[Rfam]
RNA sequence: GGUUGCAAAUUUGAGGUCGUAGCAGAAGUGCUCACGGUGCGGCCCUGUCAGAUUCUAACAAAUCUGUGAAUUCUGCU
Numbered sequence: 001g002g003u004u005g006c007a008a009a010u011u012u013g014a015g016g017u018c019g020u021a022g023c024a025g026a027a028g029u030g031c032u033c034a035c036g037g038u039g040c041g042g043c044c045c046u047g048u049c050a051g052a053u054u055c056u057a058a059c060a061a062a063u064c065u066g067u068g069a070a071u072u073c074u075g076c077u
Stems, first nucleotide, its partner, number of pairs: 013045001015044004021077007028040003049066006

Rfam assigns this 77-nucleotide sequence from Alligator sinensis to the family "Mammalian CPEB3 ribozyme". The family's consensus secondary structure is taken from published work. The source organism's lineage runs through Eukaryota, Opisthokonta, Sauropsida, Alligatorinae and Alligator.